[Rfam]
RNA: tRNA
RNA sequence: GCCGCCUUAGCUCAGUUGGCAGAGCGGUUGCCUUGUAAGCUCCAGGUCAUCGGUUCGAUUCCGAUAGGCGGCU
Numbered sequence: 001g002c003c004g005c006c007u008u009a010g011c012u013c014a015g016u017u018g019g020c021a022g023a024g025c026g027g028u029u030g031c032c033u034u035g036u037a038a039g040c041u042c043c044a045g046g047u048c049a050u051c052g053g054u055u056c057g058a059u060u061c062c063g064a065u066a067g068g069c070g071g072c073u
Stems, first nucleotide, its partner, number of pairs: 001072007010025004027043001030040002049065005